[Rfam]
RNA sequence: GCAGCGUCCCGCAACUGGCGCUGAUGAUGGAGCUCCAUCGGGAAGCGGGAUUGGUCGAAAGCCGGAGAGCCGCGCGCCUGGGUGAUCCGU
Numbered sequence: 001g002c003a004g005c006g007u008c009c010c011g012c013a014a015c016u017g018g019c020g021c022u023g024a025u026g027a028u029g030g031a032g033c034u035c036c037a038u039c040g041g042g043a044a045g046c047g048g049g050a051u052u053g054g055u056c057g058a059a060a061g062c063c064g065g066a067g068a069g070c071c072g073c074g075c076g077c078c079u080g081g082g083u084g085a086u087c088c089g090u
Base pairs, nucleotide, nucleotide: 006051007050008049009048010047011046012045015042016041017078018077019076020075021074027038028037029036030035069083070082071081
This 90-nucleotide sequence from Sphingopyxis macrogoltabida belongs to the Rfam family "ZMP/ZTP riboswitch aptamer (pfl RNA motif)".